RNA sequence: UGCCAUGCUUUUCCACAGCUUUCUUGAACUUCUUCUCCCUGUUUGGUGGUCUCCUACGUUUAGCCAUCCACUGAAGUUCAAGAAAGCUGUGGGAAACCAUGGCUU
Numbered sequence: 001u002g003c004c005a006u007g008c009u010u011u012u013c014c015a016c017a018g019c020u021u022u023c024u025u026g027a028a029c030u031u032c033u034u035c036u037c038c039c040u041g042u043u044u045g046g047u048g049g050u051c052u053c054c055u056a057c058g059u060u061u062a063g064c065c066a067u068c069c070a071c072u073g074a075a076g077u078u079c080a081a082g083a084a085a086g087c088u089g090u091g092g093g094a095a096a097c098c099a100u101g102g103c104u105u
Stems, first nucleotide, its partner, number of pairs: 003102005013092003017088006024081004029076004
The family of this 105-nucleotide RNA from Vitis rotundifolia is "MIR396 microRNA precursor family". The family has 26 seed sequences and 744 matches in Rfam 15.1. A reference for the family is Jones-Rhoades and Bartel (2004), "Computational identification of plant microRNAs and their targets, including a stress-induced miRNA", Mol Cell. Gene Ontology terms of the family: miRNA-mediated post-transcriptional gene silencing and RISC complex. Pairs were carried over by alignment from the consensus structure, which was predicted with WAR.